This 53-nucleotide sequence from Rhodothalassium salexigens belongs to the Rfam family "serC leader".

RNA sequence: GCGUGGGCCACGACCUCCCAACGGGUCGCGUGCUCUCUGGAAGGAGAGGAGAA
Numbered sequence: 001g002c003g004u005g006g007g008c009c010a011c012g013a014c015c016u017c018c019c020a021a022c023g024g025g026u027c028g029c030g031u032g033c034u035c036u037c038u039g040g041a042a043g044g045a046g047a048g049g050a051g052a053a
Stems, first nucleotide, its partner, number of pairs: 011028006033048006
Pairs were carried over by alignment from the consensus structure. Its family is annotated with regulation of gene expression in the Gene Ontology. Lineage of the source: Bacteria > Pseudomonadati > Alphaproteobacteria > Rhodothalassiaceae > Rhodothalassium salexigens. From the family's description: This family is a putative regulatory RNA structure that is found upstream of the serC-serA operon in some alpha-proteobacteria. The final stem of the structure overlaps the ribosome binding site of the serC reading frame. The match comes from Rfam's covariance-model search (44 bits). By type it is a cis-regulatory leader.